[Rfam]
RNA: Nuclear RNase P
Organism: Anopheles stephensi
RNA sequence: GCUAGUGGUAAUCUCGCACUUGGAGCACCCAUACGAGUACCUGGUUACUCAUUUAUUUGCUUCGGGAAGGUCUGAGAUAAGGCAUGUGAAUAUGCCUCAGCAAGGCAACUCUUUGAAAAGGGUGUUCGCUACCAGCAAUGCAUCAGUUGUGGAUGACGCAGUGUCCUGUGCGUGGCAGGGGAGACGGAUUGUAACCGCCGUGUGUGUGUGUCGCCUCUCGGGGAGGCAUGCAGCGUGGGGGGCAGUUCUUUCUUCGCGCCACGUCAGGCACUGAUUGAAAACAGCGGAUUGCCAGCCAUUUAAGUCAAAUAUGCGAGCUACUAUCGCUGAGGGAGUAUCCUUCCUCCGGAGUAGAACUCAAUUCAGACUAAUCUACCACUAGC
Numbered sequence: 001g002c003u004a005g006u007g008g009u010a011a012u013c014u015c016g017c018a019c020u021u022g023g024a025g026c027a028c029c030c031a032u033a034c035g036a037g038u039a040c041c042u043g044g045u046u047a048c049u050c051a052u053u054u055a056u057u058u059g060c061u062u063c064g065g066g067a068a069g070g071u072c073u074g075a076g077a078u079a080a081g082g083c084a085u086g087u088g089a090a091u092a093u094g095c096c097u098c099a100g101c102a103a104g105g106c107a108a109c110u111c112u113u114u115g116a117a118a119a120g121g122g123u124g125u126u127c128g129c130u131a132c133c134a135g136c137a138a139u140g141c142a143u144c145a146g147u148u149g150u151g152g153a154u155g156a157c158g159c160a161g162u163g164u165c166c167u168g169u170g171c172g173u174g175g176c177a178g179g180g181g182a183g184a185c186g187g188a189u190u191g192u193a194a195c196c197g198c199c200g201u202g203u204g205u206g207u208g209u210g211u212c213g214c215c216u217c218u219c220g221g222g223g224a225g226g227c228a229u230g231c232a233g234c235g236u237g238g239g240g241g242g243c244a245g246u247u248c249u250u251u252c253u254u255c256g257c258g259c260c261a262c263g264u265c266a267g268g269c270a271c272u273g274a275u276u277g278a279a280a281a282c283a284g285c286g287g288a289u290u291g292c293c294a295g296c297c298a299u300u301u302a303a304g305u306c307a308a309a310u311a312u313g314c315g316a317g318c319u320a321c322u323a324u325c326g327c328u329g330a331g332g333g334a335g336u337a338u339c340c341u342u343c344c345u346c347c348g349g350a351g352u353a354g355a356a357c358u359c360a361a362u363u364c365a366g367a368c369u370a371a372u373c374u375a376c377c378a379c380u381a382g383c
Base pairs, nucleotide, nucleotide: 001383002382003381004380008376009375010374013317014316015315016314017313018312022063023062024061025060026059035050036049037048038047039046040044072366073365074364075363076362081293082292083291084290093107094106095105096104097103108123109122110121111120112119113118124289125288126287127286128285129284130283143274144273145272146271147270318354319353320352321351322350324348